[Rfam]
RNA sequence: GGAUGCCUGAGGGUAAGGUAGCCUCAGUACGAGAGGAACAGGCUGUCGGCGCCUCUGGUGUACCGGUUGUCCGAUAGGGCAUAGCCGGGCAGCUACGCGCUGGUUGAUAAGGCCUGAAAGCAUCUAAGGCCGAAGCAACUCCCAAAAAUAGGCAUCCACCUCUUGGCUUACCAAGACGAGAGCGGAGGCUAGAAGACCUCUUUGAUGGACCGGGGGUGUAAGCAUGAAGCUUCGGCGACAUGUUCAGCCCGCCGGCACCAAUAGCUCGAGGU
Numbered sequence: 001g002g003a004u005g006c007c008u009g010a011g012g013g014u015a016a017g018g019u020a021g022c023c024u025c026a027g028u029a030c031g032a033g034a035g036g037a038a039c040a041g042g043c044u045g046u047c048g049g050c051g052c053c054u055c056u057g058g059u060g061u062a063c064c065g066g067u068u069g070u071c072c073g074a075u076a077g078g079g080c081a082u083a084g085c086c087g088g089g090c091a092g093c094u095a096c097g098c099g100c101u102g103g104u105u106g107a108u109a110a111g112g113c114c115u116g117a118a119a120g121c122a123u124c125u126a127a128g129g130c131c132g133a134a135g136c137a138a139c140u141c142c143c144a145a146a147a148a149u150a151g152g153c154a155u156c157c158a159c160c161u162c163u164u165g166g167c168u169u170a171c172c173a174a175g176a177c178g179a180g181a182g183c184g185g186a187g188g189c190u191a192g193a194a195g196a197c198c199u200c201u202u203u204g205a206u207g208g209a210c211c212g213g214g215g216g217u218g219u220a221a222g223c224a225u226g227a228a229g230c231u232u233c234g235g236c237g238a239c240a241u242g243u244u245c246a247g248c249c250c251g252c253c254g255g256c257a258c259c260a261a262u263a264g265c266u267c268g269a270g271g272u
Stems, first nucleotide, its partner, number of pairs: 001157008011143003017047008048101005056095003063088005068081005104138003111131005180267004184201005206260003210255004214250003222243005229236001
Record summary: This 272-nucleotide part of an RNA from candidate division MSBL1 archaeon SCGC-AAA261D19 belongs to the Rfam family "Archaeal large subunit ribosomal RNA". Lineage of the source: Archaea > Methanobacteriati > Methanobacteriota > candidate division MSBL1.